[Rfam]
RNA sequence: CCCUCCGGCUGAGUUAGUGAUCGGCUGGAGAUACUUUAUAUUAUUUUGGAGAAAACCAUGUCACUAAGUACUGAAGCAAAAGCAAAAAUCCUGGCUGAAUUUGGCCGUGGCGAA
Numbered sequence: 001c002c003c004u005c006c007g008g009c010u011g012a013g014u015u016a017g018u019g020a021u022c023g024g025c026u027g028g029a030g031a032u033a034c035u036u037u038a039u040a041u042u043a044u045u046u047u048g049g050a051g052a053a054a055a056c057c058a059u060g061u062c063a064c065u066a067a068g069u070a071c072u073g074a075a076g077c078a079a080a081a082g083c084a085a086a087a088a089u090c091c092u093g094g095c096u097g098a099a100u101u102u103g104g105c106c107g108u109g110g111c112g113a114a
Base pairs, nucleotide, nucleotide: 007026008025009024010023011022012021045068046067047066048065049064051062

Rfam assigns this 114-nucleotide RNA from Shewanella salipaludis to the family "Ribosomal S15 leader".
A search with the family's covariance model found it, with a score of 100 bits.
The family's RNA type in Rfam is cis-regulatory leader.
Rfam's curators write: The E. coli Ribosomal S15 gene 5' UTR can form two alternative structures. One that is a series of three hairpins, The other includes a pseudoknot.
Its Rfam clan is "Ribosomal Protein S15 Leader clan".